Rfam assigns this 81-nucleotide sequence to the family "chrB-a RNA".
RNA sequence: CUCAUGGGGAUUGAGCGAUCUCCCCACGAGGCGACAUGCCCAAGUAUCGCGUCCCGUUCGAUAAUUCGAGGACGCAUCAUG
Numbered sequence: 001c002u003c004a005u006g007g008g009g010a011u012u013g014a015g016c017g018a019u020c021u022c023c024c025c026a027c028g029a030g031g032c033g034a035c036a037u038g039c040c041c042a043a044g045u046a047u048c049g050c051g052u053c054c055c056g057u058u059c060g061a062u063a064a065u066u067c068g069a070g071g072a073c074g075c076a077u078c079a080u081g
Base pairs, nucleotide, nucleotide: 005026006025007024008023009022010021049075050074051073052072053071054070

It is one of the family's seed sequences.
Rfam classes the family as a cis-regulatory element.